Source information
Shown here is a 100-nucleotide sequence from Vibrio paucivorans, a member of the family "Purine riboswitch aptamer". Lineage of the source: Bacteria > Pseudomonadati > Gammaproteobacteria > Vibrionales > Vibrio. The family's consensus secondary structure is taken from published work.
[Rfam]
RNA sequence: UCCGCGCAAACGUUUAAAUGCUGUAUAUGUCUAAUGAAAUGGAUUAGAUGUCUCUACUAUCGAGCCUAUCUCGAUGACUACGGUUUUUUAGUGUGACGUC
Numbered sequence: 001u002c003c004g005c006g007c008a009a010a011c012g013u014u015u016a017a018a019u020g021c022u023g024u025a026u027a028u029g030u031c032u033a034a035u036g037a038a039a040u041g042g043a044u045u046a047g048a049u050g051u052c053u054c055u056a057c058u059a060u061c062g063a064g065c066c067u068a069u070c071u072c073g074a075u076g077a078c079u080a081c082g083g084u085u086u087u088u089u090a091g092u093g094u095g096a097c098g099u100c
Base pairs, nucleotide, nucleotide: 018086020084021083022082023081024080025079029049030048031047032046033045034044035043058076059075060074061073062072063071064070
Dot-bracket structure: .................(.((((((...(((((((.......)))))))........(((((((.....)))))))..)))))).)..............